[Rfam]
RNA: L2-Alphaproteobacteria ribosomal protein leader
Nucleotides: 074
Stems, first nucleotide, its partner, number of pairs: 001022004006018003031051001033049001036047002
Number, partner (000 for none) and nucleotide at each position: 001022g002021g003020g004019g005000a006018c007017c008016u009000g010000u011000c012000a013000c014000a015000g016008g017007g018006g019004c020003c021002c022001u023000a024000u025000a026000a027000a028000c029000c030000a031051c032000c033049g034000g035000c036047g037046g038000g039000c040000a041000a042000a043000u044000u045000c046037c047036c048000g049033u050000c051031g052000g053000c054000c055000a056000a057000g058000c059000a060000a061000a062000c063000g064000g065000a066000a067000g068000a069000c070000a071000g072000a073000a074000a